The family of this 130-nucleotide RNA from Streptomyces roseolilacinus is "Streptomyces RNA 5676".
RNA sequence: CGAUGAGAGAAGAACCCCGCCCGCAGGGGACUGCGGGCGGAUCCGGGUCGGGACCUCCCCAGUUCCGCCCCGGGCGUGCCGUCGCGCACACCGCCGGGACUCCGCGUACCGGCGAUCCUCACCGAUCGGA
Numbered sequence: 001c002g003a004u005g006a007g008a009g010a011a012g013a014a015c016c017c018c019g020c021c022c023g024c025a026g027g028g029g030a031c032u033g034c035g036g037g038c039g040g041a042u043c044c045g046g047g048u049c050g051g052g053a054c055c056u057c058c059c060c061a062g063u064u065c066c067g068c069c070c071c072g073g074g075c076g077u078g079c080c081g082u083c084g085c086g087c088a089c090a091c092c093g094c095c096g097g098g099a100c101u102c103c104g105c106g107u108a109c110c111g112g113c114g115a116u117c118c119u120c121a122c123c124g125a126u127c128g129g130a
Base pairs, nucleotide, nucleotide: 004121005120006119007118009117010116017040018039019038020037021036022035023034024033025032026031042074043073044072045071046070047069049067050066051065052064053063054062076089077088078087079086093113094112095111096110097109099107100106122129123128
Identified by deep sequencing of transcriptome at the end of exponential growth phase. Appears longer on northern blot than sequencing transcript. The source organism's lineage runs through Bacteria, Bacillati, Actinomycetes, Streptomycetaceae and Streptomyces.